[Rfam]
RNA: L31-Coriobacteria ribosomal protein leader
Organism: Streptomyces sp. 3214.6
Nucleotides: 032
Base pairs, nucleotide, nucleotide: 001021002020003019004018005017006016007015008014
Number, partner (000 for none) and nucleotide at each position: 001021g002020u003019c004018c005017u006016g007015g008014c009000c010000g011000g012000g013000a014008g015007c016006c017005a018004g019003g020002a021001c022000a023000g024000g025000g026000a027000a028000a029000g030000g031000a032000a